[Rfam]
The record is a 196-nucleotide sequence from Salix brachista, which matches "MIR159 microRNA precursor family" in Rfam.
RNA sequence: GCCAUUAAAUAGGAGCUUGCUCACUCCAGAUCUGAAAGGAGGUGAUAGUAAACCACUUCUGCUACUUCAUGAACACCCAUGGGUGCGCAGGUAGCAAUUGUGAGUUGCGCAGGCUAAGGGGUCUGCAUGUGCUGGGAGAGGUGGUCGCCUUGAUCUUUUUGGUCUUGGGGUGAAGGGAGCUCCUAUGGACUUUCAA
Numbered sequence: 001g002c003c004a005u006u007a008a009a010u011a012g013g014a015g016c017u018u019g020c021u022c023a024c025u026c027c028a029g030a031u032c033u034g035a036a037a038g039g040a041g042g043u044g045a046u047a048g049u050a051a052a053c054c055a056c057u058u059c060u061g062c063u064a065c066u067u068c069a070u071g072a073a074c075a076c077c078c079a080u081g082g083g084u085g086c087g088c089a090g091g092u093a094g095c096a097a098u099u100g101u102g103a104g105u106u107g108c109g110c111a112g113g114c115u116a117a118g119g120g121g122u123c124u125g126c127a128u129g130u131g132c133u134g135g136g137a138g139a140g141g142u143g144g145u146c147g148c149c150u151u152g153a154u155c156u157u158u159u160u161g162g163u164c165u166u167g168g169g170g171u172g173a174a175g176g177g178a179g180c181u182c183c184u185a186u187g188g189a190c191u192u193u194c195a196a
Stems, first nucleotide, its partner, number of pairs: 013182006020175001022172007035159001059138002062135003068129004076121001

It scores 85 bits against the family's covariance model. The organism belongs to Salix, within Eukaryota. The base pairs follow the family's consensus structure, which was predicted with WAR.